The family of this 77-nucleotide RNA sequence from Polypterus senegalus is "Mammalian CPEB3 ribozyme". The family's consensus secondary structure is taken from published work. The organism belongs to Polypterus, within Eukaryota. Rfam links the family to the GO term RNA nuclease activity.
[Rfam]
RNA sequence: GGAGGUUUUCCAUGGUCACAGUAGUAGUGUUCUUGUUGCAACCUCUGUCAGAUUUUAUCUAAAUCUGCAAUCCUACU
Numbered sequence: 001g002g003a004g005g006u007u008u009u010c011c012a013u014g015g016u017c018a019c020a021g022u023a024g025u026a027g028u029g030u031u032c033u034u035g036u037u038g039c040a041a042c043c044u045c046u047g048u049c050a051g052a053u054u055u056u057a058u059c060u061a062a063a064u065c066u067g068c069a070a071u072c073c074u075a076c077u
Stems, first nucleotide, its partner, number of pairs: 014043003020077005026071001027039003049067007